[Rfam]
The record is an 89-nucleotide RNA sequence from Haemonchus contortus, which matches "mir-5886 microRNA precursor family" in Rfam.
The base pairs follow the family's consensus structure, which was predicted with RNAalifold.
Its family is annotated with miRNA-mediated post-transcriptional gene silencing and RISC complex in the Gene Ontology.
RNA sequence: AUUGCAUUUUGUUCAAACUGAGUCAUUGAUGUGUUCUUGUUCAAUACUAAGAACACUCUUUGACUUUGGUUUGAAGAAUUAUAUGCAAU
Numbered sequence: 001a002u003u004g005c006a007u008u009u010u011g012u013u014c015a016a017a018c019u020g021a022g023u024c025a026u027u028g029a030u031g032u033g034u035u036c037u038u039g040u041u042c043a044a045u046a047c048u049a050a051g052a053a054c055a056c057u058c059u060u061u062g063a064c065u066u067u068g069g070u071u072u073g074a075a076g077a078a079u080u081a082u083a084u085g086c087a088a089u
Stems, first nucleotide, its partner, number of pairs: 001089007009081001010077001012075007020066006028058002031056009